[Rfam]
RNA sequence: AAAUGUGUUCUUUUAAUAUUUGUCCAGUAGGUUUGCUCAAGGAGAAAGCCACU
Numbered sequence: 001a002a003a004u005g006u007g008u009u010c011u012u013u014u015a016a017u018a019u020u021u022g023u024c025c026a027g028u029a030g031g032u033u034u035g036c037u038c039a040a041g042g043a044g045a046a047a048g049c050c051a052c053u
Stems, first nucleotide, its partner, number of pairs: 030050005036044003

A member of the RNA family "U7 small nuclear RNA" from Salmo trutta, 53 nucleotides long. The literature on the family includes a 1994 paper in Nucleic Acids Res by Spycher et al., "3' end processing of mouse histone pre-mRNA: evidence for additional base-pairing between U7 snRNA and pre-mRNA". From the family's description: Animal histone pre-mRNAs are spliced by a different mechanism than nuclear pre-mRNAs and self-splicing introns. This processing involves the U7 snRNP, which contains only one RNA species: U7. The 5' end of U7 RNA is thought to base-pair to a conserved spacer element downstream of the cleavage site in histone pre-mRNA. This family contains a number of annotated U7 pseudogenes.